Xanthomonas sRNA asX3: a 182-nucleotide sequence from Xanthomonas oryzae. Lineage of the source: Bacteria > Pseudomonadati > Gammaproteobacteria > Xanthomonas > Xanthomonas oryzae pv. oryzae. It is one of the family's seed sequences. Rfam classes the family as a small RNA. The base pairs follow the family's consensus structure, which was predicted with CMfinder.

[Rfam]
RNA sequence: AUCGGCGAUCAGCCGUGGUGCUGAGCGGCUUUGGCAACGCGAGCGAUUGCACUGCUCAAUUCAAUGACGACGACCACGUUCGGCAAGGCGUCGCCGAUCAUCACCCCCGCGCUCGAUACGGCGGAUCGUGCUCAGCGUUGCGCCGGUCCCCAGUAGCCCAACUCGCGACGGAUCUGCAACCC
Numbered sequence: 001a002u003c004g005g006c007g008a009u010c011a012g013c014c015g016u017g018g019u020g021c022u023g024a025g026c027g028g029c030u031u032u033g034g035c036a037a038c039g040c041g042a043g044c045g046a047u048u049g050c051a052c053u054g055c056u057c058a059a060u061u062c063a064a065u066g067a068c069g070a071c072g073a074c075c076a077c078g079u080u081c082g083g084c085a086a087g088g089c090g091u092c093g094c095c096g097a098u099c100a101u102c103a104c105c106c107c108c109g110c111g112c113u114c115g116a117u118a119c120g121g122c123g124g125a126u127c128g129u130g131c132u133c134a135g136c137g138u139u140g141c142g143c144c145g146g147u148c149c150c151c152a153g154u155a156g157c158c159c160a161a162c163u164c165g166c167g168a169c170g171g172a173u174c175u176g177c178a179a180c181c182c
Stems, first nucleotide, its partner, number of pairs: 001098009012089003019085009028055002034050004038045002056067002107171003110167003120151002123149005128143004153162002